[Rfam]
RNA sequence: UAAAUUUCAUCAUCAGUGUAUGAUAAAUUGG
Numbered sequence: 001u002a003a004a005u006u007u008c009a010u011c012a013u014c015a016g017u018g019u020a021u022g023a024u025a026a027a028u029u030g031g
Stems, first nucleotide, its partner, number of pairs: 001031001003029005009024005014018001
Dot-bracket structure: (.(((((.((((((...).)))))))))).)
The record is a 31-nucleotide RNA sequence from Pardalotus punctatus, which matches "Iron response element II" in Rfam. A reference for the family is Koeller et al. (1989), "A cytosolic protein binds to structural elements within the iron regulatory region of the transferrin receptor mRNA", Proc Natl Acad Sci U S A. The family's RNA type in Rfam is cis-regulatory element. Gene Ontology term of the family: response to iron ion. From the family's description: IRE, TFRC, SLC40A1, SDHB, SLC11A2, CDC42BPA, ACO2, ALAS2_H.SAPIENS, CDC14A, EPAS1, ALAS2, qoxD, Hao1, NDUFS1, transferrin, Aconitate. NCBI's taxonomy places the organism under Eukaryota, Metazoa, Archosauria, Pardalotidae, Pardalotus.